[Rfam]
RNA: Mu-gpT-DE RNA
RNA sequence: UCCUGACAGAGCGCAUGGUGCGCCCUGACACUAGCCACGACAGGAGACUCACAUG
Numbered sequence: 001u002c003c004u005g006a007c008a009g010a011g012c013g014c015a016u017g018g019u020g021c022g023c024c025c026u027g028a029c030a031c032u033a034g035c036c037a038c039g040a041c042a043g044g045a046g047a048c049u050c051a052c053a054u055g
Stems, first nucleotide, its partner, number of pairs: 002044004007027003011023001